[Rfam]
RNA sequence: GUGGCAGUUUGGUGGUUGUAUGUGUGGCAUCACUUACUGGAAUUUUUAUGAGUGACAUCACAUAUACAACUGCUAAUGUGCUAC
Numbered sequence: 001g002u003g004g005c006a007g008u009u010u011g012g013u014g015g016u017u018g019u020a021u022g023u024g025u026g027g028c029a030u031c032a033c034u035u036a037c038u039g040g041a042a043u044u045u046u047u048a049u050g051a052g053u054g055a056c057a058u059c060a061c062a063u064a065u066a067c068a069a070c071u072g073c074u075a076a077u078g079u080g081c082u083a084c
Base pairs, nucleotide, nucleotide: 002083003082004081005080006079015070016069017068018067019066020065021064022063024061025060026059027058031054032053033052037050
Source information:
The record is an 84-nucleotide RNA sequence from Erinaceus europaeus, which matches "mir-489 microRNA precursor family" in Rfam. A reference for the family is Ahn et al. (2010), "MicroRNA transcriptome in the newborn mouse ovaries determined by massive parallel sequencing", Mol Hum Reprod. A search with the family's covariance model found it, with a score of 80 bits. The organism belongs to Erinaceus, within Eukaryota.